[Rfam]
RNA sequence: AUAUAAGAUGCAAUAACUAUGAUCUCAUAUACAAUAACAGUCGUGAACUGAUUAUAUCAUCGCGUCUGUUUAUGUGCAAUAAAAAGAACCUGGCGGAAAAAUCCAGGUUCUUUUUUGA
Numbered sequence: 001a002u003a004u005a006a007g008a009u010g011c012a013a014u015a016a017c018u019a020u021g022a023u024c025u026c027a028u029a030u031a032c033a034a035u036a037a038c039a040g041u042c043g044u045g046a047a048c049u050g051a052u053u054a055u056a057u058c059a060u061c062g063c064g065u066c067u068g069u070u071u072a073u074g075u076g077c078a079a080u081a082a083a084a085a086g087a088a089c090c091u092g093g094c095g096g097a098a099a100a101a102u103c104c105a106g107g108u109u110c111u112u113u114u115u116u117g118a
Base pairs, nucleotide, nucleotide: 034073035072036071037070038068039065042062043061082114083113084112085111086110087109088108089107090106091105092104093103

Notes
The family of this 118-nucleotide sequence from Brevibacillus brevis is "Bacillus sRNA ncr1015". The source organism's lineage runs through Bacteria, Bacillati, Paenibacillaceae, Brevibacillus and Brevibacillus brevis. The base pairs follow the family's consensus structure, which is taken from published work. Rfam classes the family as a small RNA. On this family, see Irnov et al., Nucleic Acids Res 2010: "Identification of regulatory RNAs in Bacillus subtilis".